[Rfam]
RNA sequence: UUCGUCGAGGGGCGCUGCGACCGUGUCGAGACCGGGACUCCCGUGCUGCAGACCCGGCCAGGCUCGGCGGACGGCAUCAGCGACAACGGCGCCCGGACUUC
Dot-bracket structure: .(((((((............(((.((.........................)).)))......)))))))...............................

The record is a 101-nucleotide RNA from Xanthomonas albilineans, which matches "SAH (S-adenosyl-L-homocysteine) riboswitch aptamer" in Rfam.
Lineage of the source: Bacteria > Pseudomonadati > Gammaproteobacteria > Xanthomonas > Xanthomonas albilineans.
For this family Rfam cites "Riboswitches that sense S-adenosylhomocysteine and activate genes involved in coenzyme recycling" (Wang et al., Mol Cell, 2008).
Its family is annotated with S-adenosylhomocysteine metabolic process and regulation of gene expression in the Gene Ontology.
The base pairs follow the family's consensus structure, which is taken from published work.
It scores 50 bits against the family's covariance model.